The record is a 118-nucleotide RNA sequence, which matches "LOOT RNA" in Rfam.
The base pairs follow the family's consensus structure, which is taken from published work.
RNA sequence: GACCUAACCCGGCAUUUAUGGCGGCAUGGUUUAAAACCGAUCAAAGAUGAAGAACCCGCCAUAGGGGAGCACUUUGAUCGGUCCUGUUGGGAAACUAGCAGUGGGUAGCCUAGCUAUC
Dot-bracket structure: ((((....(((.((....)).)))...)))).....((((((((((.....(..(((.......)))..).))))))))))..(((((((....)))))))..(((((.....)))))
The sequence is in the family's curated seed alignment. The family's RNA type in Rfam is small RNA.